RNA sequence: UGGGCGGAAUCCGAAAAGCCAUAACAGAGUAGGAA
Numbered sequence: 001u002g003g004g005c006g007g008a009a010u011c012c013g014a015a016a017a018g019c020c021a022u023a024a025c026a027g028a029g030u031a032g033g034a035a
Base pairs, nucleotide, nucleotide: 003020004019005018010034011033012032
This 35-nucleotide sequence belongs to the Rfam family "DUF805b RNA". Pairs were carried over by alignment from the consensus structure, which is taken from published work.